The record is a 142-nucleotide sequence from Cytobacillus dafuensis, which matches "Ribosomal protein L10 leader" in Rfam. The literature on the family includes a 1994 paper in Prog Nucleic Acid Res Mol Biol by Zengel and Lindahl, "Diverse mechanisms for regulating ribosomal protein synthesis in Escherichia coli". A search with the family's covariance model found it, with a score of 87 bits. Rfam describes the family as follows. This family is a putative r-protein leader autoregulatory structure found in B. subtilis and other low-GC Gram-positive bacteria. It is located in the 5' untranslated regions of mRNAs encoding ribosomal proteins L10 and L12 (rplJ-rplL). A Rho-independent transcription terminator structure that is probably involved in regulation is included at the 3' end. Taxonomically the source falls in Cytobacillus (Bacteria, Bacillati, Bacillota, Bacilli). Rfam links the family to the GO term regulation of gene expression. Rfam classes the family as a cis-regulatory leader.

[Rfam]
RNA sequence: AAUAUAAUACCAUUUGUACCGUAGACAGCAGGUGCUUCAUGCUUAAUAUCCUGCCGAGGUCAUACGAUAGAUUAUUUGAUUUAAUUCCUAUUGUAUACUCCCUCCACGUCUACUACUGAUGUGGAGGUUUUUAUUUGUCGGU
Numbered sequence: 001a002a003u004a005u006a007a008u009a010c011c012a013u014u015u016g017u018a019c020c021g022u023a024g025a026c027a028g029c030a031g032g033u034g035c036u037u038c039a040u041g042c043u044u045a046a047u048a049u050c051c052u053g054c055c056g057a058g059g060u061c062a063u064a065c066g067a068u069a070g071a072u073u074a075u076u077u078g079a080u081u082u083a084a085u086u087c088c089u090a091u092u093g094u095a096u097a098c099u100c101c102c103u104c105c106a107c108g109u110c111u112a113c114u115a116c117u118g119a120u121g122u123g124g125a126g127g128u129u130u131u132u133a134u135u136u137g138u139c140g141g142u
Stems, first nucleotide, its partner, number of pairs: 028054005034042002101127010